[Rfam]
RNA: mir-2807 microRNA precursor family
Organism: Bombyx mori
RNA sequence: UACAGUACCAUUUGUAUGGAGUAGGAACAGCUUCCCUGCGUUUACCGCUAGGGGCGCUGUUCCAACUCCAUACAAAUUUGAGUUA
Dot-bracket structure: .........(((((((.(.(((.((((((.....(((..((.....))..)))....)))))).))).).)))))))........